[Rfam]
RNA sequence: UUGAAGAUUUUGAAGACUUUAACUUAUAGACUUUAAGGAUUUGAAAACUUCAACUUGCAUACUUGAAGAUUUUGAAGACUUCAACU
Numbered sequence: 001u002u003g004a005a006g007a008u009u010u011u012g013a014a015g016a017c018u019u020u021a022a023c024u025u026a027u028a029g030a031c032u033u034u035a036a037g038g039a040u041u042u043g044a045a046a047a048c049u050u051c052a053a054c055u056u057g058c059a060u061a062c063u064u065g066a067a068g069a070u071u072u073u074g075a076a077g078a079c080u081u082c083a084a085c086u
Stems, first nucleotide, its partner, number of pairs: 001084006009076006017068005025059001027057002032053002035050003

A member of the RNA family "MIR8024 microRNA precursor family" from Solanum commersonii, 86 nucleotides long. The match comes from Rfam's covariance-model search (77 bits). Rfam links the family to the GO terms miRNA-mediated post-transcriptional gene silencing and RISC complex.